Source information: The family of this 84-nucleotide RNA sequence from Andreesenia angusta is "S10-Clostridia ribosomal protein leader".

RNA sequence: GACAUGCGAUGAGACAAGAGGUUGCUUAAUAUACUAUUAAGGUAAUUUUUGUUGAGAAUGUCCGGCAGCAGAAUCGGGCGACAA
Numbered sequence: 001g002a003c004a005u006g007c008g009a010u011g012a013g014a015c016a017a018g019a020g021g022u023u024g025c026u027u028a029a030u031a032u033a034c035u036a037u038u039a040a041g042g043u044a045a046u047u048u049u050u051g052u053u054g055a056g057a058a059u060g061u062c063c064g065g066c067a068g069c070a071g072a073a074u075c076g077g078g079c080g081a082c083a084a
Stems, first nucleotide, its partner, number of pairs: 014052003018049004025041005059083004065079002

The base pairs follow the family's consensus structure, which is taken from published work. Taxonomically the source falls in Andreesenia (Bacteria, Tissierellia, Tissierellales, Gottschalkiaceae). The family's RNA type in Rfam is cis-regulatory leader. A search with the family's covariance model found it, with a score of 39 bits.